[Rfam]
Shown here is an 86-nucleotide RNA from Rubrivivax sp., a member of the family "SAH (S-adenosyl-L-homocysteine) riboswitch aptamer". The match comes from Rfam's covariance-model search (63 bits). For this family Rfam cites "Riboswitches that sense S-adenosylhomocysteine and activate genes involved in coenzyme recycling" (Wang et al., Mol Cell, 2008).
RNA sequence: CCUUUCGAGGAGCGUUGCAAGGUCCACGCAUUCAAGCGCGGCCCCAGGCUCGAAAGCGAUUUCUUUUGCAACGGCGCUCACCCGCA
Numbered sequence: 001c002c003u004u005u006c007g008a009g010g011a012g013c014g015u016u017g018c019a020a021g022g023u024c025c026a027c028g029c030a031u032u033c034a035a036g037c038g039c040g041g042c043c044c045c046a047g048g049c050u051c052g053a054a055a056g057c058g059a060u061u062u063c064u065u066u067u068g069c070a071a072c073g074g075c076g077c078u079c080a081c082c083c084g085c086a
Stems, first nucleotide, its partner, number of pairs: 002056007021043004